[Rfam]
RNA sequence: GCUGGGUUGGUCUAGUGGUAGGACAUCUGUCUCACAAGGAGCUGUUCCUAACAGUAUCUAUGAGCACAGAAGAUCGUGGGAUCAAACCCCACACCUAGUA
Numbered sequence: 001g002c003u004g005g006g007u008u009g010g011u012c013u014a015g016u017g018g019u020a021g022g023a024c025a026u027c028u029g030u031c032u033c034a035c036a037a038g039g040a041g042c043u044g045u046u047c048c049u050a051a052c053a054g055u056a057u058c059u060a061u062g063a064g065c066a067c068a069g070a071a072g073a074u075c076g077u078g079g080g081a082u083c084a085a086a087c088c089c090c091a092c093a094c095c096u097a098g099u100a
Stems, first nucleotide, its partner, number of pairs: 001099007010024004026070005076092005